A member of the RNA family "Small nucleolar RNA SNORA8" from Hymenochirus boettgeri, 130 nucleotides long. The family's consensus secondary structure was predicted with RNAfold. Its Rfam clan is "SNORA8 clan". NCBI's taxonomy places the organism under Eukaryota, Deuterostomia, Craniata, Anura, Hymenochirus. By type it is an H/ACA-box small nucleolar RNA. ACA8 is a member of the H/ACA class of snoRNA that guide the sites of modification of uridines to pseudouridines.

[Rfam]
RNA sequence: UGCACUGGAUGGUAUCUGGACCCAAUGGGUGACUUUCUGUGGGGUGUUCAAUAGCAGUGCUACUAACCCAGUAACUGGCAUCGUUGGUUGGAGCUCCGUGUUCUAACCUGGUUUUAUGCUGGGAACAACG
Numbered sequence: 001u002g003c004a005c006u007g008g009a010u011g012g013u014a015u016c017u018g019g020a021c022c023c024a025a026u027g028g029g030u031g032a033c034u035u036u037c038u039g040u041g042g043g044g045u046g047u048u049c050a051a052u053a054g055c056a057g058u059g060c061u062a063c064u065a066a067c068c069c070a071g072u073a074a075c076u077g078g079c080a081u082c083g084u085u086g087g088u089u090g091g092a093g094c095u096c097c098g099u100g101u102u103c104u105a106a107c108c109u110g111g112u113u114u115u116a117u118g119c120u121g122g123g124a125a126c127a128a129c130g
Base pairs, nucleotide, nucleotide: 002060003059004058005057006056007055015053017051018047020045021044022043023042024040027037028036064116065115066114068111069110070109071108077102078101079100080099081098